[Rfam]
RNA sequence: UAGAGCCUCAAGACAAUAAACAAUGUGAAAAUUGACUUAAGAAAAAA
Numbered sequence: 001u002a003g004a005g006c007c008u009c010a011a012g013a014c015a016a017u018a019a020a021c022a023a024u025g026u027g028a029a030a031a032u033u034g035a036c037u038u039a040a041g042a043a044a045a046a047a
Stems, first nucleotide, its partner, number of pairs: 007041002010038003014034004